Record summary:
Rfam assigns this 54-nucleotide RNA from Canis lupus to the family "mir-320 microRNA precursor family". Gene Ontology terms of the family: cellular response to glucose stimulus, negative regulation of gene expression and miRNA-mediated post-transcriptional gene silencing. Rfam 15.1 lists 659 matches to the family in 129 species. The base pairs follow the family's consensus structure, which was predicted with RNAalifold. Taxonomically the source falls in Canis lupus (Eukaryota, Metazoa, Amniota, Carnivora).
[Rfam]
RNA sequence: GCCUUCUCUUCCCGGUUCUUCCCGGAGUCGGGAAAAGCUGGGUUGAGAGGGCGA
Dot-bracket structure: ...(((((..(((((...((((((....))))))...)))))..))))).....